[Rfam]
Nucleotides: 201
Base pairs, nucleotide, nucleotide: 011187012186013185014184018039019038020037021036022035023034024033025032026031040182041181042180043179044178045177050097098167099166100165106142107141109139110138111137145161146160147159148158
Number, partner (000 for none) and nucleotide at each position: 001000a002000a003000a004000a005000g006000a007000a008000a009000u010000a011187c012186g013185c014184u015000g016000a017000a018039u019038u020037u021036u022035u023034u024033c025032c026031g027000u028000u029000c030000a031026u032025g033024g034023a035022a036021a037020g038019a039018a040182g041181c042180g043179g044178g045177g046000g047000a048000a049000c050097c051000a052000a053000c054000u055000a056000g057000g058000a059000c060000u061000g062000a063000g064000g065000g066000g067000a068000u069000c070000g071000c072000a073000u074000u075000a076000a077000u078000g079000u080000g081000u082000a083000u084000c085000c086000c087000u088000c089000a090000a091000u092000c093000u094000a095000a096000c097050g098167g099166g100165g101000u102000g103000a104000a105000u106142c107141c108000c109139g110138g111137c112000u113000u114000g115000u116000g117000g118000u119000g120000c121000g122000a123000a124000g125000c126000a127000a128000u129000g130000c131000g132000c133000c134000a135000c136000c137111g138110c139109c140000a141107g142106g143000u144000a145161g146160g147159g148158c149000g150000g151000c152000u153000c154000u155000c156000u157000c158148g159147c160146c161145c162000g163000a164000a165100u166099c167098c168000g169000a170000c171000a172000g173000c174000u175000a176000a177045c178044c179043u180042c181041g182040u183000a184014a185013g186012c187011g188000u189000a190000u191000a192000g193000a194000g195000a196000g197000g198000c199000a200000a201000c
Record summary:
c-di-AMP riboswitch aptamer (ydaO/yuaA leader): a 201-nucleotide sequence from Paenibacillus thalictri. It scores 82 bits against the family's covariance model. NCBI's taxonomy places the organism under Bacteria, Bacillati, Bacilli, Caryophanales, Paenibacillus. Rfam describes the family as follows. This family represents a conserved RNA structure found upstream of the ydaO and yuaA genes in Bacillus subtilis and related genes in other bacteria.